Rfam assigns this 379-nucleotide RNA sequence from Brevundimonas halotolerans to the family "Bacterial RNase P class A".
Taxonomically the source falls in Brevundimonas (Bacteria, Pseudomonadati, Pseudomonadota, Alphaproteobacteria).
The family's RNA type in Rfam is ribozyme.

RNA sequence: CCAGACGGUCGGACGGUCGCGGCAGGUUUCGGCCUGUCGAGGAAAGUCCGGGCUCCACGGUGAAAAGGCGGCGGGUAACGCCCGCCCGGGGUGACCCGAGGGACAGUGCCACAGAAAGCAAACCGCCGGCCUUUCGAGGCCGGUAAGGGUGAAAGGGUGGGGUAAGAGCCCACCGCGUCGACGGCAACGGAGACGGCACGGUAAACCCCGCCUGGAGCAAGACCGAAUAGGGAUGUCGCGCAGGCUCGCCUGCGGGGGUCACCGCCCCAGAUGUCCGGGUAGGUUGCUGGAGCCGGUCGGCAACGAUCGGCCAAGAGGAAUGACCGUCCAUGCUCCCUCGGGGGCGGGACAGAACCCGGCUUACAGACCGUCUGGCAAU
Numbered sequence: 001c002c003a004g005a006c007g008g009u010c011g012g013a014c015g016g017u018c019g020c021g022g023c024a025g026g027u028u029u030c031g032g033c034c035u036g037u038c039g040a041g042g043a044a045a046g047u048c049c050g051g052g053c054u055c056c057a058c059g060g061u062g063a064a065a066a067g068g069c070g071g072c073g074g075g076u077a078a079c080g081c082c083c084g085c086c087c088g089g090g091g092u093g094a095c096c097c098g099a100g101g102g103a104c105a106g107u108g109c110c111a112c113a114g115a116a117a118g119c120a121a122a123c124c125g126c127c128g129g130c131c132u133u134u135c136g137a138g139g140c141c142g143g144u145a146a147g148g149g150u151g152a153a154a155g156g157g158u159g160g161g162g163u164a165a166g167a168g169c170c171c172a173c174c175g176c177g178u179c180g181a182c183g184g185c186a187a188c189g190g191a192g193a194c195g196g197c198a199c200g201g202u203a204a205a206c207c208c209c210g211c212c213u214g215g216a217g218c219a220a221g222a223c224c225g226a227a228u229a230g231g232g233a234u235g236u237c238g239c240g241c242a243g244g245c246u247c248g249c250c251u252g253c254g255g256g257g258g259u260c261a262c263c264g265c266c267c268c269a270g271a272u273g274u275c276c277g278g279g280u281a282g283g284u285u286g287c288u289g290g291a292g293c294c295g296g297u298c299g300g301c302a303a304c305g306a307u308c309g310g311c312c313a314a315g316a317g318g319a320a321u322g323a324c325c326g327u328c329c330a331u332g333c334u335c336c337c338u339c340g341g342g343g344g345c346g347g348g349a350c351a352g353a354a355c356c357c358g359g360c361u362u363a364c365a366g367a368c369c370g371u372c373u374g375g376c377a378a379u
Stems, first nucleotide, its partner, number of pairs: 001375010011364001012328007020039008044362003048359005053217004062262001066213005071085005086100001087098004101208002106206002108202003123148002125144008156174006175197001176195004182189002221285004231276006255268004292311008